[Rfam]
RNA sequence: UGACGGGGGCCCGCACAAGCGGCGGAGCAUGCGGAUUAAUUCGAUGCAACGCGAAGAACCUUACCAAGGCUUGACAUGCACCGCGACACUGCAGAGAUGUGGUGGCCUUCGGGGUGGUGUGCAGGUGGUGCAUGGUUGUCGUCAGCUCGUGUCGUGAGAUGUUGGGUUAAGUCCCGCAACGAGCGCAACCCUUGCCCUAUGUUGCCAGCACGUUGUGGUGGGGACUCGUGGGGGACUGCCGGGGUUAACUCGGAGGAAGGUGGGGAUGACGUCAAAUCAUCAUGCCCCUUAUGUCUUGGGCUUCACGCAUGCUACAAUGGCUGGUACAGAGGGUUGCGAUACUGUGAGGUGGAGCGAAUCCCUUAAAGCCGGUCUCAGUUCGGAUUGGGGUCUGCAACUCGACCCCAUGAAGGUGGAGUCGCUAGUAAUCGCAGAUCAGCAACGCUGCGGUGAAUACGUUCUCGGGCCUUGUACACACCGCCCGUCACGUCACGAAAGUUGGUAACACCCGAAGCUCAUGGCCCAACCGUUUGGGGGGAGUGGUCGAAGGUGGGAUUGGCGAUUGGGACGAAGUCGUAACAAGG
Numbered sequence: 001u002g003a004c005g006g007g008g009g010c011c012c013g014c015a016c017a018a019g020c021g022g023c024g025g026a027g028c029a030u031g032c033g034g035a036u037u038a039a040u041u042c043g044a045u046g047c048a049a050c051g052c053g054a055a056g057a058a059c060c061u062u063a064c065c066a067a068g069g070c071u072u073g074a075c076a077u078g079c080a081c082c083g084c085g086a087c088a089c090u091g092c093a094g095a096g097a098u099g100u101g102g103u104g105g106c107c108u109u110c111g112g113g114g115u116g117g118u119g120u121g122c123a124g125g126u127g128g129u130g131c132a133u134g135g136u137u138g139u140c141g142u143c144a145g146c147u148c149g150u151g152u153c154g155u156g157a158g159a160u161g162u163u164g165g166g167u168u169a170a171g172u173c174c175c176g177c178a179a180c181g182a183g184c185g186c187a188a189c190c191c192u193u194g195c196c197c198u199a200u201g202u203u204g205c206c207a208g209c210a211c212g213u214u215g216u217g218g219u220g221g222g223g224a225c226u227c228g229u230g231g232g233g234g235a236c237u238g239c240c241g242g243g244g245u246u247a248a249c250u251c252g253g254a255g256g257a258a259g260g261u262g263g264g265g266a267u268g269a270c271g272u273c274a275a276a277u278c279a280u281c282a283u284g285c286c287c288c289u290u291a292u293g294u295c296u297u298g299g300g301c302u303u304c305a306c307g308c309a310u311g312c313u314a315c316a317a318u319g320g321c322u323g324g325u326a327c328a329g330a331g332g333g334u335u336g337c338g339a340u341a342c343u344g345u346g347a348g349g350u351g352g353a354g355c356g357a358a359u360c361c362c363u364u365a366a367a368g369c370c371g372g373u374c375u376c377a378g379u380u381c382g383g384a385u386u387g388g389g390g391u392c393u394g395c396a397a398c399u400c401g402a403c404c405c406c407a408u409g410a411a412g413g414u415g416g417a418g419u420c421g422c423u424a425g426u427a428a429u430c431g432c433a434g435a436u437c438a439g440c441a442a443c444g445c446u447g448c449g450g451u452g453a454a455u456a457c458g459u460u461c462u463c464g465g466g467c468c469u470u471g472u473a474c475a476c477a478c479c480g481c482c483c484g485u486c487a488c489g490u491c492a493c494g495a496a497a498g499u500u501g502g503u504a505a506c507a508c509c510c511g512a513a514g515c516u517c518a519u520g521g522c523c524c525a526a527c528c529g530u531u532u533g534g535g536g537g538g539a540g541u542g543g544u545c546g547a548a549g550g551u552g553g554g555a556u557u558g559g560c561g562a563u564u565g566g567g568a569c570g571a572a573g574u575c576g577u578a579a580c581a582a583g584g
Stems, first nucleotide, its partner, number of pairs: 001475002003472003007469007015459002019422005024315001026313008034304002040055004064299007077121002080118005087104007106113002124288002127286004133282002135277003138273001140271002145184006151160003163176004190265004195233007205222002209220003236256002239253005319374007331362003336355002341350003381412001386407007428451007478583001480580001483576002488570004493565003498560006506552004514545001516543004522538003527534002
About this RNA
A member of the RNA family "Bacterial small subunit ribosomal RNA" from Schaalia sp. 19OD2882, 584 nucleotides of a longer RNA. Lineage of the source: Bacteria > Bacillati > Actinomycetes > Actinomycetaceae > Schaalia.